Rfam assigns this 88-nucleotide RNA sequence from Jacana jacana to the family "Small nucleolar RNA SNORD70". Rfam 15.1 lists 1,085 matches to the family in 579 species. About the family: snoRNA HBII-234 belongs to the C/D family of snoRNAs. It is the human orthologue of the mouse MBII-234 and is predicted to guide 2'O-ribose methylation of the small 18S rRNA on position A512. It is hosted, together with HBII-95, by the core C/D box snoRNA protein encoding gene NOP5/NOP58. It scores 84 bits against the family's covariance model. Rfam classes the family as a C/D-box small nucleolar RNA. Rfam links the family to the GO terms nucleolus and RNA processing.

[Rfam]
RNA sequence: UACUCUGUUGUCAAUGAUGGAUUUUUGCUGAAGCUGAAUAUAACUGAUUUGAGUCAACAUUUCGUCACUACCACUGAGACAACAGGUA
Numbered sequence: 001u002a003c004u005c006u007g008u009u010g011u012c013a014a015u016g017a018u019g020g021a022u023u024u025u026u027g028c029u030g031a032a033g034c035u036g037a038a039u040a041u042a043a044c045u046g047a048u049u050u051g052a053g054u055c056a057a058c059a060u061u062u063c064g065u066c067a068c069u070a071c072c073a074c075u076g077a078g079a080c081a082a083c084a085g086g087u088a
Stems, first nucleotide, its partner, number of pairs: 001088003005085008